[Rfam]
RNA sequence: AAGAGCCCCGAGUUAAUAGAAACUGAGGAGAUUAACUUUGAAACGUA
Number, nucleotide and partner (000 for none) at each position: 001a000002a000003g000004a000005g000006c000007c000008c040009c000010g038011a037012g036013u035014u034015a033016a032017u031018a000019g000020a000021a000022a000023c000024u000025g000026a000027g000028g000029a000030g000031a017032u016033u015034a014035a013036c012037u011038u010039u000040g008041a000042a000043a000044c000045g000046u000047a000
This 47-nucleotide RNA from Colocasia esculenta belongs to the Rfam family "Plastid-rpl16 group II-D1 intron".
The family has 538 seed sequences and 1,446 matches in Rfam 15.1.
From the family's description: Plastid-rpl16 is a non-coding RNA (ncRNA) recognised in plastids. It was recognised in and intronic region of a ribosome rpl16 gene.
The family's consensus secondary structure was predicted with LocARNA.